[Rfam]
RNA sequence: ACCAUUCACCAGAGGUGCCGUUACGCGGCUGAGAUUGCCAUAAGGCUAAACUCUUGGAACCUGAUCUGGAUCAUACCAGCGUAGGAAGAGUGAAAAAUGUUUGUC
Number, nucleotide and partner (000 for none) at each position: 001a000002c000003c000004a000005u000006u093007c092008a091009c090010c000011a054012g053013a052014g051015g000016u048017g029018c028019c027020g026021u025022u000023a000024c000025g021026c020027g019028g018029c017030u000031g000032a000033g000034a000035u000036u000037g046038c045039c044040a000041u000042a000043a000044g039045g038046c037047u000048a016049a000050a000051c014052u013053c012054u011055u000056g000057g000058a000059a000060c085061c084062u083063g082064a000065u000066c079067u078068g077069g076070a000071u000072c000073a000074u000075a000076c069077c068078a067079g066080c000081g000082u063083a062084g061085g060086a000087a000088g000089a000090g009091u008092g007093a006094a000095a000096a000097a000098u000099g000100u000101u000102u000103g000104u000105c000
RNA: TPP riboswitch aptamer (THI element)